Shown here is a 37-nucleotide RNA from Chlorobium phaeobacteroides, a member of the family "CRISPR RNA direct repeat element".
The family has 5 seed sequences and 55 matches in Rfam 15.1.
Pairs were carried over by alignment from the consensus structure, which was predicted with WAR.
The source organism's lineage runs through Bacteria, Pseudomonadati, Chlorobiia, Chlorobiaceae and Chlorobium phaeobacteroides.
RNA sequence: GUUUCAAUCCCUCUUAAUACGUCAGGUCUUAAUCAAC
Numbered sequence: 001g002u003u004u005c006a007a008u009c010c011c012u013c014u015u016a017a018u019a020c021g022u023c024a025g026g027u028c029u030u031a032a033u034c035a036a037c
Stems, first nucleotide, its partner, number of pairs: 006029001007027001009026002015021001